The family of this 46-nucleotide RNA from Georgenia satyanarayanai is "Guanidine-II riboswitch aptamer (mini-ykkC)". Its family is annotated with regulation of gene expression in the Gene Ontology. The family has 72 seed sequences and 1,589 matches in Rfam 15.1.
[Rfam]
RNA sequence: GAGCCGGGACGACCCGCUCGCCAGCCCGGUCACGGGGACGACCCCG
Numbered sequence: 001g002a003g004c005c006g007g008g009a010c011g012a013c014c015c016g017c018u019c020g021c022c023a024g025c026c027c028g029g030u031c032a033c034g035g036g037g038a039c040g041a042c043c044c045c046g
Base pairs, nucleotide, nucleotide: 001018005016006015007014008013033046034045035044036043037042